[Rfam]
RNA: mir-26 microRNA precursor family
RNA sequence: CUGGUGCCAGGUUCAAGUAAUCCAGGAUAGGCUGUGGUUUUGGCAGUCAGCCUGUUCUAGGUUACUUGGCUCCGGCGCCUG
Numbered sequence: 001c002u003g004g005u006g007c008c009a010g011g012u013u014c015a016a017g018u019a020a021u022c023c024a025g026g027a028u029a030g031g032c033u034g035u036g037g038u039u040u041u042g043g044c045a046g047u048c049a050g051c052c053u054g055u056u057c058u059a060g061g062u063u064a065c066u067u068g069g070c071u072c073c074g075g076c077g078c079c080u081g
Stems, first nucleotide, its partner, number of pairs: 003079003007075002010072002014068009024058010